[Rfam]
RNA: mir-1000 microRNA precursor family
RNA sequence: GUCUGUGAUAUUGUCCUGUCACAGCAGUACUGACAUUAAAGCCUACUGCUGUUAUGGGACAUGACCUCAGCC
Numbered sequence: 001g002u003c004u005g006u007g008a009u010a011u012u013g014u015c016c017u018g019u020c021a022c023a024g025c026a027g028u029a030c031u032g033a034c035a036u037u038a039a040a041g042c043c044u045a046c047u048g049c050u051g052u053u054a055u056g057g058g059a060c061a062u063g064a065c066c067u068c069a070g071c072c
Stems, first nucleotide, its partner, number of pairs: 003070003012061007022051008